[Rfam]
A member of the RNA family "SAM (S-adenosyl methionine) riboswitch aptamer" from Rhodococcus sp. CX, 113 nucleotides long.
RNA sequence: CUUCACGAGUUGCCGUCGCCAAGCCCCGACUGGACGGCACACCAACCCCACGCUCGCGGGUGGUUCGGGUGACGAAGCGGUCCGAGACCGACCGGCUCGGACAGGAGCGCCCC
Numbered sequence: 001c002u003u004c005a006c007g008a009g010u011u012g013c014c015g016u017c018g019c020c021a022a023g024c025c026c027c028g029a030c031u032g033g034a035c036g037g038c039a040c041a042c043c044a045a046c047c048c049c050a051c052g053c054u055c056g057c058g059g060g061u062g063g064u065u066c067g068g069g070u071g072a073c074g075a076a077g078c079g080g081u082c083c084g085a086g087a088c089c090g091a092c093c094g095g096c097u098c099g100g101a102c103a104g105g106a107g108c109g110c111c112c113c
Stems, first nucleotide, its partner, number of pairs: 001077004009040001012038006022031002041064003046060003080102007089094001

The base pairs follow the family's consensus structure, which is taken from published work. Its Rfam clan is "SAM clan". The organism belongs to Rhodococcus, within Bacteria.